Rfam assigns this 510-nucleotide RNA from Streptomyces sp. PAN_FS17 to the family "Saccharopolyspora sRNA 350".
The literature on the family includes a 2013 paper in PLoS One by Liu et al., "Prediction and characterization of small non-coding RNAs related to secondary metabolites in Saccharopolyspora erythraea".
The match comes from Rfam's covariance-model search (163 bits).

[Rfam]
RNA sequence: CGGACGGAGUACUCCCAGAUGGCGUCGGCGUCGAGGAGCGCCUGAUCGCCGAGGUAGGCGCCGUCGGCGAGGACUCCGAGGGACUCGUCCUCGCCGUAGGGGCCGGUGCCGAGCUUCUCCACCCUGCCGUGCGCGAGCAGGAGCACCUCGUCGGCCUGGCUGCCGAAGGAGGCGAUCACGGAACCCGCCGUGAACUCCCGCUGCUGGCAGCGCUGGGCGAGCUCGGAGAGCACCUCCUCGUCCUCGUAGUCCCGCAGCGCCGGCAGUUCGCACAGCUCGGCCGGGAUGACAUCGACGCGAUCACCGGUCUUGACGAAGGUGACGCGGCCGUCGCCGACGGCGUAGGUCAGACGCCGGUUCACCCGGUACGUGCCGCCCUGGACGUUCACCCAGGGCAGCAUGCGCAGCAGCCAGCGGGAGCUGAUCUCCUGCAUCUGCGGCGCGGACUUGGUGGUGGUGGCCAGGUUCCGCGCGGCCGCCGUGCCGAGACUCUGCUGCGGCUUGCCCUGC
Numbered sequence: 001c002g003g004a005c006g007g008a009g010u011a012c013u014c015c016c017a018g019a020u021g022g023c024g025u026c027g028g029c030g031u032c033g034a035g036g037a038g039c040g041c042c043u044g045a046u047c048g049c050c051g052a053g054g055u056a057g058g059c060g061c062c063g064u065c066g067g068c069g070a071g072g073a074c075u076c077c078g079a080g081g082g083a084c085u086c087g088u089c090c091u092c093g094c095c096g097u098a099g100g101g102g103c104c105g106g107u108g109c110c111g112a113g114c115u116u117c118u119c120c121a122c123c124c125u126g127c128c129g130u131g132c133g134c135g136a137g138c139a140g141g142a143g144c145a146c147c148u149c150g151u152c153g154g155c156c157u158g159g160c161u162g163c164c165g166a167a168g169g170a171g172g173c174g175a176u177c178a179c180g181g182a183a184c185c186c187g188c189c190g191u192g193a194a195c196u197c198c199c200g201c202u203g204c205u206g207g208c209a210g211c212g213c214u215g216g217g218c219g220a221g222c223u224c225g226g227a228g229a230g231c232a233c234c235u236c237c238u239c240g241u242c243c244u245c246g247u248a249g250u251c252c253c254g255c256a257g258c259g260c261c262g263g264c265a266g267u268u269c270g271c272a273c274a275g276c277u278c279g280g281c282c283g284g285g286a287u288g289a290c291a292u293c294g295a296c297g298c299g300a301u302c303a304c305c306g307g308u309c310u311u312g313a314c315g316a317a318g319g320u321g322a323c324g325c326g327g328c329c330g331u332c333g334c335c336g337a338c339g340g341c342g343u344a345g346g347u348c349a350g351a352c353g354c355c356g357g358u359u360c361a362c363c364c365g366g367u368a369c370g371u372g373c374c375g376c377c378c379u380g381g382a383c384g385u386u387c388a389c390c391c392a393g394g395g396c397a398g399c400a401u402g403c404g405c406a407g408c409a410g411c412c413a414g415c416g417g418g419a420g421c422u423g424a425u426c427u428c429c430u431g432c433a434u435c436u437g438c439g440g441c442g443c444g445g446a447c448u449u450g451g452u453g454g455u456g457g458u459g460g461c462c463a464g465g466u467u468c469c470g471c472g473c474g475g476c477c478g479c480c481g482u483g484c485c486g487a488g489a490c491u492c493u494g495c496u497g498c499g500g501c502u503u504g505c506c507c508u509g510c
Stems, first nucleotide, its partner, number of pairs: 006390002009387001011385002015381002018328001021325001025322003029318001031316002037311002040308003048305001051302002054233002059228001061226003065111004072103001074102004079097001081095002118221001120219001122217002126213002130209001132206002136202002140198002143196001149192002154189001156187001158185002161178002235295002240290003244286002252280003256277003261270002329342004351379001353377001355375003360372003391431005397425001399423002403418001405416001407415001437476002440473001442471005447465006477509002480504002484500003487496002